[Rfam]
RNA sequence: AGGUUUCCCGAGACGGUGGUCCAUCACCGGGGCUGACCCUGGCCUUUCUUCCCCGAGGCCAGGUGCGGUUCCGGUGAAGGAACCUCCGUCCCGGGGAGGGAAAUA
Numbered sequence: 001a002g003g004u005u006u007c008c009c010g011a012g013a014c015g016g017u018g019g020u021c022c023a024u025c026a027c028c029g030g031g032g033c034u035g036a037c038c039c040u041g042g043c044c045u046u047u048c049u050u051c052c053c054c055g056a057g058g059c060c061a062g063g064u065g066c067g068g069u070u071c072c073g074g075u076g077a078a079g080g081a082a083c084c085u086c087c088g089u090c091c092c093g094g095g096g097a098g099g100g101a102a103a104u105a
Base pairs, nucleotide, nucleotide: 010092012090013089014088015087016086018084019083021080022079024077025076026075027074028073029072030071031070032069033068034067035066038063039062040061041060042059043058044057045056
A member of the RNA family "mraW RNA" from Arachnia propionica, 105 nucleotides long. By type it is a cis-regulatory element. Pairs were carried over by alignment from the consensus structure, which is taken from published work. A search with the family's covariance model found it, with a score of 53 bits. The organism belongs to Arachnia, within Bacteria.